[Rfam]
RNA sequence: UUUUUAUUAGACGUUGAUUGUCACGUGUCGUACUUUUAUUGAAUGUUAAUUUUGUACACUUAAUUAACGUCAACUUCUAAUAAAAAUGCGACACGUGAUUGUUAACGUCA
Numbered sequence: 001u002u003u004u005u006a007u008u009a010g011a012c013g014u015u016g017a018u019u020g021u022c023a024c025g026u027g028u029c030g031u032a033c034u035u036u037u038a039u040u041g042a043a044u045g046u047u048a049a050u051u052u053u054g055u056a057c058a059c060u061u062a063a064u065u066a067a068c069g070u071c072a073a074c075u076u077c078u079a080a081u082a083a084a085a086a087u088g089c090g091a092c093a094c095g096u097g098a099u100u101g102u103u104a105a106c107g108u109c110a
Stems, first nucleotide, its partner, number of pairs: 020099004025094002029090003034085003038081003
A member of the RNA family "MIR1520 microRNA precursor family" from Glycine max, 110 nucleotides long. The match comes from Rfam's covariance-model search (65 bits). Clan: MIR1520 microRNA precursor clan. The organism belongs to Glycine subgen. Soja, within Eukaryota.